[Rfam]
RNA sequence: AAGCAGCACUCUGUAGCAGAUAAAAUUGACACAAUUUGAGCUUGCUAUAGAAAGGAAGUCUAACCUACUCCGGUAUUCUCUUCUCUGUGCAACAAGGCAUUAUGUAGACUUAAACAGC
Numbered sequence: 001a002a003g004c005a006g007c008a009c010u011c012u013g014u015a016g017c018a019g020a021u022a023a024a025a026u027u028g029a030c031a032c033a034a035u036u037u038g039a040g041c042u043u044g045c046u047a048u049a050g051a052a053a054g055g056a057a058g059u060c061u062a063a064c065c066u067a068c069u070c071c072g073g074u075a076u077u078c079u080c081u082u083c084u085c086u087g088u089g090c091a092a093c094a095a096g097g098c099a100u101u102a103u104g105u106a107g108a109c110u111u112a113a114a115c116a117g118c
Stems, first nucleotide, its partner, number of pairs: 009040003012033003017028003056111007066104002072098001074096001079092001082089001
RNA: Small nucleolar RNA SNORA28
Organism: Ovis aries